Description:
Shown here is a 71-nucleotide sequence, a member of the family "2dG-II purine riboswitch aptamer". The family is grouped with related families in Rfam's "Purine riboswitches". The literature on the family includes a 2017 paper in Proc Natl Acad Sci U S A by Weinberg et al., "Bioinformatic analysis of riboswitch structures uncovers variant classes with altered ligand specificity". Rfam links the family to the GO term purine nucleobase biosynthetic process. The sequence is in the family's curated seed alignment.
[Rfam]
RNA sequence: AGACCGUGUAGCCUUGCGAAUUUGGCGCAAGGGUAUCCACGAUCCCGCCGAACGGGAUGCGACCACGGGGA
Number, nucleotide and partner (000 for none) at each position: 001a000002g000003a000004c068005c067006g066007u065008g064009u000010a000011g000012c032013c031014u030015u029016g028017c027018g026019a000020a000021u000022u000023u000024g000025g000026c018027g017028c016029a015030a014031g013032g012033g000034u000035a000036u000037c000038c000039a000040c000041g000042a058043u057044c056045c055046c054047g053048c000049c000050g000051a000052a000053c047054g046055g045056g044057a043058u042059g000060c000061g000062a000063c000064c008065a007066c006067g005068g004069g000070g000071a000